[Rfam]
RNA sequence: AUUGCCCGCCCCUGCCAUAGCAGAAGUGCUCAUGGAGCGGCCUGUCAGAUUCCAAUGAAUCUGCAAAUUCUACU
Numbered sequence: 001a002u003u004g005c006c007c008g009c010c011c012c013u014g015c016c017a018u019a020g021c022a023g024a025a026g027u028g029c030u031c032a033u034g035g036a037g038c039g040g041c042c043u044g045u046c047a048g049a050u051u052c053c054a055a056u057g058a059a060u061c062u063g064c065a066a067a068u069u070c071u072a073c074u
Stems, first nucleotide, its partner, number of pairs: 008042001014041003019074002022071004026038002046063007

Annotation:
Rfam assigns this 74-nucleotide sequence from Crocodylus porosus to the family "Mammalian CPEB3 ribozyme". Lineage of the source: Eukaryota > Metazoa > Euteleostomi > Archosauria > Crocodylus. The literature on the family includes a 2006 paper in Science by Salehi-Ashtiani et al., "A genomewide search for ribozymes reveals an HDV-like sequence in the human CPEB3 gene".